[Rfam]
RNA sequence: UGGCACCCAAUGGUGUGGCUUUGGAUAUGAGGGAAUUCGUGAGGGAAGAGGCAUGUAAGUGUUCCUCGGAAGAAAAAAAAAAGUGAAAGUCAGUUCAAGAAAGAUCACCGCUGAAGCCUGACAUGUCUUUCUUAAAGGUACAGUAGCGCCUAAGUAUGGGACAAGAAUUAAGUAAGCAUAAAGUUUUUGUUAAGCAAUUAAAAGAAGCUUUAAAGACACGGUGAGUAAAGGUUAAGAGUAAUGAUCUUUUUUAAGUUUUUUGACCUUAUUAAGGACACCUGUCCGU
Numbered sequence: 001u002g003g004c005a006c007c008c009a010a011u012g013g014u015g016u017g018g019c020u021u022u023g024g025a026u027a028u029g030a031g032g033g034a035a036u037u038c039g040u041g042a043g044g045g046a047a048g049a050g051g052c053a054u055g056u057a058a059g060u061g062u063u064c065c066u067c068g069g070a071a072g073a074a075a076a077a078a079a080a081a082a083g084u085g086a087a088a089g090u091c092a093g094u095u096c097a098a099g100a101a102a103g104a105u106c107a108c109c110g111c112u113g114a115a116g117c118c119u120g121a122c123a124u125g126u127c128u129u130u131c132u133u134a135a136a137g138g139u140a141c142a143g144u145a146g147c148g149c150c151u152a153a154g155u156a157u158g159g160g161a162c163a164a165g166a167a168u169u170a171a172g173u174a175a176g177c178a179u180a181a182a183g184u185u186u187u188u189g190u191u192a193a194g195c196a197a198u199u200a201a202a203a204g205a206a207g208c209u210u211u212a213a214a215g216a217c218a219c220g221g222u223g224a225g226u227a228a229a230g231g232u233u234a235a236g237a238g239u240a241a242u243g244a245u246c247u248u249u250u251u252u253a254a255g256u257u258u259u260u261u262g263a264c265c266u267u268a269u270u271a272a273g274g275a276c277a278c279c280u281g282u283c284c285g286u
Stems, first nucleotide, its partner, number of pairs: 006033003013028003038051001040049001090138002094135002100130003109125002144164001146162001149160004169212003172208002219262003223258004229247006271286001273284004
The family of this 286-nucleotide RNA from Sciurus vulgaris is "Mason-Pfizer monkey virus packaging signal". By type it is a cis-regulatory element. About the family: This family represents a group of sequences that are related to the Mason-Pfizer monkey virus (MPMV) packaging signal. The packaging signal is located in the 5' UTR and is required for specific RNA encapsidation.